The record is a 131-nucleotide RNA from Suricata suricatta, which matches "Small nucleolar RNA SNORA38" in Rfam.

[Rfam]
RNA sequence: CUCUCCUACAAAGGCAUGUCUAUAGUUCCCUGUCUUUGGACACACAAGAAUUGGAGGAAAAGAAACGUGGACUUGGAGAAAUCUGGGGCCAGCAUGUUCCAUGUAGGCUCAAGAUCAAUAAUGCAACAGAG
Numbered sequence: 001c002u003c004u005c006c007u008a009c010a011a012a013g014g015c016a017u018g019u020c021u022a023u024a025g026u027u028c029c030c031u032g033u034c035u036u037u038g039g040a041c042a043c044a045c046a047a048g049a050a051u052u053g054g055a056g057g058a059a060a061a062g063a064a065a066c067g068u069g070g071a072c073u074u075g076g077a078g079a080a081a082u083c084u085g086g087g088g089c090c091a092g093c094a095u096g097u098u099c100c101a102u103g104u105a106g107g108c109u110c111a112a113g114a115u116c117a118a119u120a121a122u123g124c125a126a127c128a129g130a131g
Stems, first nucleotide, its partner, number of pairs: 002057005017042005025029001069124001071122001073121001091109003095105003

Lineage of the source: Eukaryota > Amniota > Mammalia > Eutheria > Suricata. The family's consensus secondary structure was predicted with RNAfold. ACA38 is a member of the H/ACA class of snoRNA that guide the sites of modification of uridines to pseudouridines. Rfam 15.1 lists 628 matches to the family in 149 species. By type it is an H/ACA-box small nucleolar RNA. The match comes from Rfam's covariance-model search (118 bits).